serC leader: a 52-nucleotide RNA. From the family's description: This family is a putative regulatory RNA structure that is found upstream of the serC-serA operon in some alpha-proteobacteria. The final stem of the structure overlaps the ribosome binding site of the serC reading frame. On this family, see Corbino et al., Genome Biol 2005: "Evidence for a second class of S-adenosylmethionine riboswitches and other regulatory RNA motifs in alpha-proteobacteria". It is annotated as a cis-regulatory leader. It is one of the family's seed sequences. Gene Ontology term of the family: regulation of gene expression.

RNA sequence: CGGUGGGACACCCCUCCCCAACGAGGGGCGAAUAUCUGGAAGGAUACCAUGU
Numbered sequence: 001c002g003g004u005g006g007g008a009c010a011c012c013c014c015u016c017c018c019c020a021a022c023g024a025g026g027g028g029c030g031a032a033u034a035u036c037u038g039g040a041a042g043g044a045u046a047c048c049a050u051g052u
Stems, first nucleotide, its partner, number of pairs: 011028006033046005